Overview:
Shown here is a 141-nucleotide RNA from Actinomyces slackii, a member of the family "FMN riboswitch aptamer (RFN element)". Taxonomically the source falls in Actinomyces (Bacteria, Bacillati, Actinomycetota, Actinomycetales). The match comes from Rfam's covariance-model search (82 bits). From the family's description: The RFN element is a highly conserved domain that is found frequently in the 5'-untranslated regions of prokaryotic mRNAs that encode for flavin mononucleotide (FMN) biosynthesis and transport proteins. This element is a metabolite-dependent riboswitch that directly binds FMN in the absence of proteins. Its family is annotated with FMN binding in the Gene Ontology.
RNA sequence: AACGUGCUCCGGGGUCGGUGAAAGUCCGAACCGGCGGUGAGAGUCCGCGACCCGGCCGCAGGCGCCCCCAGGCGCAGCGGACGGUUGAGCCGGUGGAAUUCCGGCACCGACGGUGAGAGUCCGGAAGGGAGGAUGCACGUG
Numbered sequence: 001a002a003c004g005u006g007c008u009c010c011g012g013g014g015u016c017g018g019u020g021a022a023a024g025u026c027c028g029a030a031c032c033g034g035c036g037g038u039g040a041g042a043g044u045c046c047g048c049g050a051c052c053c054g055g056c057c058g059c060a061g062g063c064g065c066c067c068c069c070a071g072g073c074g075c076a077g078c079g080g081a082c083g084g085u086u087g088a089g090c091c092g093g094u095g096g097a098a099u100u101c102c103g104g105c106a107c108c109g110a111c112g113g114u115g116a117g118a119g120u121c122c123g124g125a126a127g128g129g130a131g132g133a134u135g136c137a138c139g140u141g
Stems, first nucleotide, its partner, number of pairs: 003139005008133003016028003030120002032109002034048004043107002052084002089105005111123003